[Rfam]
Shown here is an 88-nucleotide RNA sequence from Nyssa sinensis, a member of the family "Small nucleolar RNA snoR27".
Clan: snR68 clan.
A reference for the family is Brown et al. (2001), "Multiple snoRNA gene clusters from Arabidopsis", RNA.
It scores 64 bits against the family's covariance model.
Taxonomically the source falls in Nyssa (Eukaryota, Streptophyta, Embryophyta, Mesangiospermae).
The family's consensus secondary structure was predicted with WAR.
Nucleotides: 088
Base pairs, nucleotide, nucleotide: 002087004085005084006083007082
Number, partner (000 for none) and nucleotide at each position: 001000c002087u003000c004085g005084g006083a007082u008000c009000a010000a011000u012000g013000a014000u015000g016000u017000u018000g019000u020000u021000a022000a023000a024000c025000u026000g027000c028000g029000u030000u031000a032000u033000c034000u035000a036000u037000c038000u039000g040000u041000a042000a043000c044000u045000a046000c047000c048000u049000a050000c051000a052000g053000g054000u055000g056000a057000c058000u059000g060000a061000a062000g063000a064000u065000a066000a067000c068000u069000a070000u071000u072000a073000c074000a075000u076000c077000c078000u079000g080000a081000g082007a083006u084005c085004c086000a087002a088000u